A member of the RNA family "Group II catalytic intron D1-D4-1", 108 nucleotides long. For this family Rfam cites "The ins and outs of group II introns" (Bonen and Vogel, Trends Genet, 2001).

RNA sequence: CAACCCAUACAGUGAUGUAUGGCUGAAAGUUCAGAAGUCAGCAGAGGCCGUAGUACCGCGAGGGGGAAUGUCUCUGAAAUACGGGAGUACGAACAGAGCGGGAAGGGC
Numbered sequence: 001c002a003a004c005c006c007a008u009a010c011a012g013u014g015a016u017g018u019a020u021g022g023c024u025g026a027a028a029g030u031u032c033a034g035a036a037g038u039c040a041g042c043a044g045a046g047g048c049c050g051u052a053g054u055a056c057c058g059c060g061a062g063g064g065g066g067a068a069u070g071u072c073u074c075u076g077a078a079a080u081a082c083g084g085g086a087g088u089a090c091g092a093a094c095a096g097a098g099c100g101g102g103a104a105g106g107g108c
Stems, first nucleotide, its partner, number of pairs: 001025002005022007038045002047108003056101003074096003
Dot-bracket structure: ((..(((((((....))))))).))............((....)).(((......(((...............(((.................)))..)))....)))